[Rfam]
RNA sequence: CAUAGAGAUGGCAAUGGAGCUUGCCAAAACCGCCCUUUGUUUUUAAGUUUUUCAUAAUCUUUAAGAGGCUGAUAGCUCCUACUCUUCC
Number, nucleotide and partner (000 for none) at each position: 001c000002a000003u000004a000005g000006a000007g000008a000009u000010g025011g024012c023013a022014a000015u000016g079017g078018a077019g076020c075021u074022u013023g012024c011025c010026a000027a000028a000029a000030c000031c000032g069033c068034c067035c000036u000037u000038u000039g000040u000041u000042u000043u000044u000045a000046a000047g000048u000049u000050u000051u000052u000053c000054a000055u000056a000057a000058u000059c000060u000061u000062u000063a000064a000065g000066a000067g034068g033069c032070u000071g000072a000073u000074a021075g020076c019077u018078c017079c016080u000081a000082c000083u000084c000085u000086u000087c000088c000

Shown here is an 88-nucleotide sequence from Stanieria cyanosphaera, a member of the family "Fluoride riboswitch aptamer (crcB RNA motif)". The organism belongs to Stanieria cyanosphaera, within Bacteria. The base pairs follow the family's consensus structure, which is taken from published work. The family has 289 seed sequences and 2,293 matches in Rfam 15.1.